[Rfam]
A member of the RNA family "Vault RNA" from Trichonephila clavipes, 70 nucleotides long. This family of RNAs are found as part of the enigmatic vault ribonucleoprotein complex. The complex consists of a major vault protein (MVP), two minor vault proteins (VPARP and TEP1), and several small untranslated RNA molecules. It has been suggested that the vault complex is involved in drug resistance. The family's RNA type in Rfam is non-coding RNA gene. The source organism's lineage runs through Eukaryota, Bilateria, Araneomorphae, Nephilidae and Trichonephila. For this family Rfam cites "Evolution of Vault RNAs" (Stadler et al., Mol Biol Evol, 2009). The match comes from Rfam's covariance-model search (45 bits).
RNA sequence: GCACAGGCGUGGUUGAGUGGUUACUUCGCAAACAUGUUCUGAUCGACCACUGACGCUGUCCUGUGUUUUU
Numbered sequence: 001g002c003a004c005a006g007g008c009g010u011g012g013u014u015g016a017g018u019g020g021u022u023a024c025u026u027c028g029c030a031a032a033c034a035u036g037u038u039c040u041g042a043u044c045g046a047c048c049a050c051u052g053a054c055g056c057u058g059u060c061c062u063g064u065g066u067u068u069u070u
Base pairs, nucleotide, nucleotide: 002065003064004063005062006061007060012054013053014052015051017050018049019048020047026046027045028044